RNA sequence: GCUGAGCCCGGUAACGUGGGCUUGUAACCCAGGUGGGAGCAACAAGGUGUUGGGACGUAGCACCAGCCCAAAUGGUUGGAUUCGGUGCUGCUGAUAUCUGGCCUGCCCGUUCCAAGCCGGGAGUUGAACUAAGUGAUUCAAGCGAAAGCCUGGGUCACAUGGUUCAUAGAGAAUAGGGUACCGCGUGAGGCUGGCUUCACAGAGCAGCGAUCACCUCUCGCUUCCGACAGUGGAAGGAUAACAAGCCGGUUGUCGCCCGAGACCACAUGAUCAGAUGGGCUGUUCUAACUGGACCAUCACCUUU
Number, nucleotide and partner (000 for none) at each position: 001g040002c039003u038004g023005a022006g021007c020008c019009c018010g017011g000012u000013a000014a000015c000016g000017u010018g009019g008020g007021c006022u005023u004024g000025u000026a000027a000028c037029c036030c035031a000032g000033g000034u000035g030036g029037g028038a003039g002040c001041a000042a000043c000044a303045a302046g301047g300048u299049g298050u000051u296052g295053g294054g000055a000056c291057g290058u288059a000060g286061c000062a284063c000064c282065a281066g280067c279068c278069c277070a276071a000072a000073u273074g272075g271076u270077u269078g264079g263080a000081u261082u260083c259084g258085g257086u000087g256088c000089u255090g254091c000092u000093g251094a250095u000096a000097u000098c249099u248100g247101g246102c245103c000104u243105g242106c000107c237108c236109g000110u235111u234112c233113c232114a231115a000116g228117c000118c226119g225120g224121g223122a222123g221124u220125u000126g165127a164128a163129c162130u161131a160132a000133g158134u157135g156136a155137u154138u153139c152140a151141a000142g149143c148144g000145a000146a000147a000148g143149c142150c000151u140152g139153g138154g137155u136156c135157a134158c133159a000160u131161g130162g129163u128164u127165c126166a000167u000168a000169g000170a000171g000172a000173a218174u000175a216176g215177g214178g000179u000180a000181c000182c000183g000184c209185g208186u207187g000188a000189g000190g000191c202192u201193g200194g000195c000196u000197u000198c000199a000200c193201a192202g191203a000204g000205c000206a000207g186208c185209g184210a000211u000212c000213a000214c177215c176216u175217c000218u173219c000220g124221c123222u122223u121224c120225c119226g118227a000228c116229a000230g000231u114232g113233g112234a111235a110236g108237g107238a000239u000240a000241a000242c105243a104244a000245g102246c101247c100248g099249g098250u094251u093252g000253u000254c090255g089256c087257c085258c084259g083260a082261g081262a000263c079264c078265a000266c000267a000268u000269g077270a076271u075272c074273a073274g000275a000276u070277g069278g068279g067280c066281u065282g064283u000284u062285c000286u060287a000288a058289c000290u057291g056292g000293a000294c053295c052296a051297u000298c049299a048300c047301c046302u045303u044304u000